Rfam assigns this 111-nucleotide RNA sequence from Brachypodium distachyon to the family "MIR5185 microRNA precursor family".
The source organism's lineage runs through Eukaryota, Viridiplantae, Streptophytina, Poaceae and Brachypodium.
The match comes from Rfam's covariance-model search (102 bits).
Gene Ontology terms of the family: miRNA-mediated post-transcriptional gene silencing and RISC complex.
[Rfam]
RNA sequence: GAUCCUGCGAAAGUCCCGCUUCUAGUUCAAUUCUCAAAUCUCCUAUUCAAAUUCUGAGCAAAAUUUUGAAUAGAAGAUUUGAAAAAUGAACUAGAAGCGGGACUUUCGCGG
Numbered sequence: 001g002a003u004c005c006u007g008c009g010a011a012a013g014u015c016c017c018g019c020u021u022c023u024a025g026u027u028c029a030a031u032u033c034u035c036a037a038a039u040c041u042c043c044u045a046u047u048c049a050a051a052u053u054c055u056g057a058g059c060a061a062a063a064u065u066u067u068g069a070a071u072a073g074a075a076g077a078u079u080u081g082a083a084a085a086a087u088g089a090a091c092u093a094g095a096a097g098c099g100g101g102a103c104u105u106u107c108g109c110g111g
Base pairs, nucleotide, nucleotide: 008108009107010106011105012104013103014102015101016100017099018098019097020096021095022094023093024092025091026090027089028088029087031085032084034082035081036080037079038078039077040076041075044072045071046070047069048068049067050066051065052063053062055060